RNA sequence: CCGUGCUAGACGGGGAGGUAGCGGUGCCCUGAACCCGCAAUCCGCUAUAGCGGGGUUGAACUCCUGUUCUCGGUCUUAUCGAUGUGAGGUCUGACUUCUAUACGCAGUGUUGACGGUCGGGUCCUCCGCAAUGGGCGCUUGUGAACCCGGUCAGGUCCGGAAGGAAGCAGCCGUAAGCAAGAAGGUUCAUGUGCCGGAGGGACGCCUGACUCGAGCUAAACGGUAGAGGUUCCGCUUGGAUCGUAAGGUCAACAACAGGUGCACGG
Numbered sequence: 001c002c003g004u005g006c007u008a009g010a011c012g013g014g015g016a017g018g019u020a021g022c023g024g025u026g027c028c029c030u031g032a033a034c035c036c037g038c039a040a041u042c043c044g045c046u047a048u049a050g051c052g053g054g055g056u057u058g059a060a061c062u063c064c065u066g067u068u069c070u071c072g073g074u075c076u077u078a079u080c081g082a083u084g085u086g087a088g089g090u091c092u093g094a095c096u097u098c099u100a101u102a103c104g105c106a107g108u109g110u111u112g113a114c115g116g117u118c119g120g121g122u123c124c125u126c127c128g129c130a131a132u133g134g135g136c137g138c139u140u141g142u143g144a145a146c147c148c149g150g151u152c153a154g155g156u157c158c159g160g161a162a163g164g165a166a167g168c169a170g171c172c173g174u175a176a177g178c179a180a181g182a183a184g185g186u187u188c189a190u191g192u193g194c195c196g197g198a199g200g201g202a203c204g205c206c207u208g209a210c211u212c213g214a215g216c217u218a219a220a221c222g223g224u225a226g227a228g229g230u231u232c233c234g235c236u237u238g239g240a241u242c243g244u245a246a247g248g249u250c251a252a253c254a255a256c257a258g259g260u261g262c263a264c265g266g
Stems, first nucleotide, its partner, number of pairs: 001266006009057003012030004017025001019023001034054005063259006072250005080243004085238004092234002095229006103222002106217003115211008123200006129191002132189005138181005148173004156165003
Bacterial large signal recognition particle RNA: a 266-nucleotide RNA from Paenibacillus hemerocallicola.
By type it is a non-coding RNA gene.
The signal recognition particle (SRP) is a universally conserved ribonucleoprotein involved in the co-translational targeting of proteins to membranes.